Annotation
Rfam assigns this 86-nucleotide RNA sequence from Aquisalibacillus elongatus to the family "c-di-GMP-I riboswitch aptamer". The match comes from Rfam's covariance-model search (83 bits). The family's consensus secondary structure is taken from published work. The organism belongs to Aquisalibacillus, within Bacteria.
RNA sequence: GUCCGAUAAUGGCAAACUUACUGAAAAGUAAGGACGCAAAGCUACGGGUCUAAGGUAUUAAUUACUAUGAUCGCCGGGCCGCCGAA
Numbered sequence: 001g002u003c004c005g006a007u008a009a010u011g012g013c014a015a016a017c018u019u020a021c022u023g024a025a026a027a028g029u030a031a032g033g034a035c036g037c038a039a040a041g042c043u044a045c046g047g048g049u050c051u052a053a054g055g056u057a058u059u060a061a062u063u064a065c066u067a068u069g070a071u072c073g074c075c076g077g078g079c080c081g082c083c084g085a086a
Stems, first nucleotide, its partner, number of pairs: 012037002017032006041079003045076003048071003055065003